RNA sequence: UAAUGAGAAUGAAAAAAGAGAGGUAAUGGAAUACCUCUCUAAGCAGAGCCGUUAAAAAGAUGGUGGCUAUAAUUAAAUAGAUGAAAUA
Numbered sequence: 001u002a003a004u005g006a007g008a009a010u011g012a013a014a015a016a017a018g019a020g021a022g023g024u025a026a027u028g029g030a031a032u033a034c035c036u037c038u039c040u041a042a043g044c045a046g047a048g049c050c051g052u053u054a055a056a057a058a059g060a061u062g063g064u065g066g067c068u069a070u071a072a073u074u075a076a077a078u079a080g081a082u083g084a085a086a087u088a
Stems, first nucleotide, its partner, number of pairs: 024033002048064006
Dot-bracket structure: .......................((......))..............((((((.....))))))........................
The record is an 88-nucleotide RNA sequence from Atopostipes suicloacalis, which matches "RNA anti-toxin A" in Rfam. The base pairs follow the family's consensus structure, which was predicted with RNAalifold. The match comes from Rfam's covariance-model search (52 bits). Lineage of the source: Bacteria > Bacilli > Carnobacteriaceae > Atopostipes > Atopostipes suicloacalis. The family's RNA type in Rfam is antitoxin RNA.